[Rfam]
Nucleotides: 500
Stems, first nucleotide, its partner, number of pairs: 001463003009460001011332004018325003223319003227314002230311002234308005241285002245281008256267003290301001293300002337378006347371001351367004389459003392452003396435003401430004406425004439446002465492003474485004
Number, partner (000 for none) and nucleotide at each position: 001463c002462a003461g004000u005000u006000a007000a008000a009460g010000c011332g012331u013330u014329c015000g016000u017000a018325g019324u020323u021000u022000a023000u024000g025000u026000u027000a028000c029000a030000c031000a032000g033000u034000a035000a036000a037000g038000c039000a040000g041000g042000u043000u044000a045000g046000a047000g048000a049000c050000u051000c052000a053000g054000g055000u056000u057000u058000u059000g060000a061000g062000u063000u064000c065000u066000c067000g068000u069000c070000u071000g072000u073000u074000u075000u076000u077000c078000c079000u080000g081000u082000c083000g084000u085000g086000u087000a088000g089000u090000u091000u092000a093000c094000u095000g096000c097000a098000c099000a100000c101000u102000a103000u104000u105000a106000c107000u108000u109000u110000g111000a112000g113000u114000a115000a116000a117000u118000g119000a120000a121000u122000u123000u124000g125000c126000u127000c128000c129000a130000a131000g132000c133000a134000a135000g136000c137000u138000u139000u140000a141000g142000c143000u144000u145000g146000u147000a148000c149000c150000g151000c152000u153000c154000a155000g156000c157000a158000u159000g160000g161000a162000a163000u164000a165000a166000u167000a168000u169000a170000a171000u172000a173000u174000a175000a176000c177000u178000c179000c180000c181000u182000a183000u184000c185000g186000g187000c188000a189000c190000g191000u192000c193000g194000g195000c196000g197000a198000g199000u200000c201000g202000a203000a204000u205000g206000g207000g208000a209000c210000g211000u212000g213000a214000u215000g216000a217000u218000u219000g220000a221000u222000a223319a224318g225317g226000a227314c228313a229000g230311u231310c232000g233000g234308g235307g236306g237305c238304a239000u240000u241285u242284g243000u244000a245281u246280u247279u248278g249277c250276u251275g252274g253000a254000g255000a256267g257266a258265g259000g260000u261000g262000a263000a264000a265258u266257u267256c268000u269000a270000a271000g272000a273000c274252c275251c276250g277249g278248c279247a280246a281245a282000g283000a284242c285241a286000a287000a288000c289000u290301g291000a292000g293300g294299c295000g296000a297000a298000a299294g300293c301290u302000u303000u304238u305237g306236c307235c308234c309000a310231g311230g312000a313228u314227g315000u316000g317225c318224c319223u320000g321000u322000u323020a324019a325018u326000c327000a328000a329014g330013g331012a332011c333000g334000a335000a336000a337378g338377u339376u340375g341374g342373g343000g344000g345000a346000u347371c348000g349000a350000a351367g352366a353365c354364g355000a356000u357000u358000a359000g360000a361000u362000a363000c364354c365353g366352u367351c368000g369000u370000a371347g372000u373342c374341u375340c376339a377338a378337c379000c380000g381000u382000a383000a384000a385000c386000a387000a388000u389459g390458c391457c392452g393451a394450c395000a396435u397434a398433a399000u400000u401430u402429c403428g404427g405000c406425g407424a408423a409422g410000u411000a412000a413000g414000u415000u416000u417000a418000u419000a420000g421000u422409c423408u424407u425406c426000u427404u428403c429402g430401g431000a432000g433398u434397u435396a436000c437000c438000a439446g440445a441000g442000a443000a444000a445440u446439c447000a448000a449000a450394g451393u452392c453000u454000u455000u456000g457391g458390g459389c460009c461003c462002u463001g464000g465492g466491g467490g468000g469000a470000g471000u472000a473000u474485g475484g476483u477482c478000g479000c480000a481000a482477g483476g484475c485474u486000g487000a488000a489000a490467c491466u492465u493000a494000a495000a496000g497000g498000a499000a500000u

About this RNA
This 500-nucleotide part of an RNA from Gregarina sp. Phaedon/Daegwallyeong/2010 belongs to the Rfam family "Eukaryotic small subunit ribosomal RNA". Its family is annotated with structural constituent of ribosome and ribosome in the Gene Ontology. Pairs were carried over by alignment from the consensus structure, which is taken from published work. Taxonomically the source falls in Gregarina (Eukaryota, Sar, Gregarinasina, Gregarinidae). Its Rfam clan is "SSU clan".